The family of this 72-nucleotide RNA sequence from Pampinifervens florentissimum is "tRNA". Rfam links the family to the GO term triplet codon-amino acid adaptor activity. Its Rfam clan is "tRNA clan". A search with the family's covariance model found it, with a score of 72 bits.
[Rfam]
RNA sequence: GCCGGCGUAGCUCAGCGGCAGAGCGAGGCACUCGUAAUGCCUAGGUCGUGGGUUCAAAUCCCACCGCCGGCU
Numbered sequence: 001g002c003c004g005g006c007g008u009a010g011c012u013c014a015g016c017g018g019c020a021g022a023g024c025g026a027g028g029c030a031c032u033c034g035u036a037a038u039g040c041c042u043a044g045g046u047c048g049u050g051g052g053u054u055c056a057a058a059u060c061c062c063a064c065c066g067c068c069g070g071c072u
Base pairs, nucleotide, nucleotide: 001071002070003069004068005067006066007065010024011023012022013021026042027041028040029039030038048064049063050062051061052060
By type it is a transfer RNA.